RNA sequence: UUUUUUAGUGUCAAUUUCUAUGCUGUAUAUCUGUGUCACUGAAUGAAAGUUUAAGCGUUAUAUAAGAACGCCAGCCACAGAGCCACCAAUCAGGUGGUAUUUUUUUUG
Numbered sequence: 001u002u003u004u005u006u007a008g009u010g011u012c013a014a015u016u017u018c019u020a021u022g023c024u025g026u027a028u029a030u031c032u033g034u035g036u037c038a039c040u041g042a043a044u045g046a047a048a049g050u051u052u053a054a055g056c057g058u059u060a061u062a063u064a065a066g067a068a069c070g071c072c073a074g075c076c077a078c079a080g081a082g083c084c085a086c087c088a089a090u091c092a093g094g095u096g097g098u099a100u101u102u103u104u105u106u107u108g
Stems, first nucleotide, its partner, number of pairs: 008026003012022002030081006039074003042051003055071005082098006
The family of this 108-nucleotide RNA sequence is "DUF3800-I RNA". The family's RNA type in Rfam is small RNA. About the family: Actinobacteria, Firmicutes, Fusobacteria, Proteobacteria (1 example), Tenericutes (2 examples).